[Rfam]
RNA sequence: UACACUUCACCAACACUCUGGCCCUUACUUCCAGUCUUCGGACUGGACCCAUGGCAUGGGCCUAUUUUGGUGUGAAGAAGAGGAACGAACCCAUUACUCACCGCGGUAGUCUUGCCUUUGGUUUGGCUUCAGCGGUCCAUCUUUUAGGGUCGACAU
Numbered sequence: 001u002a003c004a005c006u007u008c009a010c011c012a013a014c015a016c017u018c019u020g021g022c023c024c025u026u027a028c029u030u031c032c033a034g035u036c037u038u039c040g041g042a043c044u045g046g047a048c049c050c051a052u053g054g055c056a057u058g059g060g061c062c063u064a065u066u067u068u069g070g071u072g073u074g075a076a077g078a079a080g081a082g083g084a085a086c087g088a089a090c091c092c093a094u095u096a097c098u099c100a101c102c103g104c105g106g107u108a109g110u111c112u113u114g115c116c117u118u119u120g121g122u123u124u125g126g127c128u129u130c131a132g133c134g135g136u137c138c139a140u141c142u143u144u145u146a147g148g149g150u151c152g153a154c155a156u
Stems, first nucleotide, its partner, number of pairs: 007075003020062005026056001028054002031046006089150003101135004106130001108128001111126002

Shown here is a 156-nucleotide RNA from Pyrenochaeta sp. DS3sAY3a, a member of the family "Small nucleolar RNA snR80". Gene Ontology terms of the family: nucleolus and RNA processing. On this family, see Schattner et al., Nucleic Acids Res 2004: "Genome-wide searching for pseudouridylation guide snoRNAs: analysis of the Saccharomyces cerevisiae genome". The base pairs follow the family's consensus structure, which was predicted with WAR. Rfam classes the family as an H/ACA-box small nucleolar RNA. The family has 6 seed sequences and 447 matches in Rfam 15.1.